RNA sequence: AAAAUAGCAUGAGGCAGCGAUGCAAAUGAUUAGUAUCUGGAGAAGGCAUUCUAAGAAGGAUAUGAAAGGUAACCAUCGCCGAGUAUAGAUUAUGGCAAUAAUCUUAUACGGGGUUAUAGGAAACACUUAUAACACUCCUACUUAUAGUAGAGGCGCUUGCAAAUCG
Numbered sequence: 001a002a003a004a005u006a007g008c009a010u011g012a013g014g015c016a017g018c019g020a021u022g023c024a025a026a027u028g029a030u031u032a033g034u035a036u037c038u039g040g041a042g043a044a045g046g047c048a049u050u051c052u053a054a055g056a057a058g059g060a061u062a063u064g065a066a067a068g069g070u071a072a073c074c075a076u077c078g079c080c081g082a083g084u085a086u087a088g089a090u091u092a093u094g095g096c097a098a099u100a101a102u103c104u105u106a107u108a109c110g111g112g113g114u115u116a117u118a119g120g121a122a123a124c125a126c127u128u129a130u131a132a133c134a135c136u137c138c139u140a141c142u143u144a145u146a147g148u149a150g151a152g153g154c155g156c157u158u159g160c161a162a163a164u165c166g
Stems, first nucleotide, its partner, number of pairs: 007160003011156001017079006025070001033063006083109003087104007110136002113133008138150005
The family of this 166-nucleotide RNA sequence from Acholeplasma palmae is "Lysine riboswitch aptamer". The family's consensus secondary structure is taken from published work. The match comes from Rfam's covariance-model search (64 bits). Rfam describes the family as follows. Riboswitches are metabolite binding domains within certain messenger RNAs that serve as precision sensors for their corresponding targets. Allosteric rearrangement of mRNA structure is mediated by ligand binding, and this results in modulation of gene expression.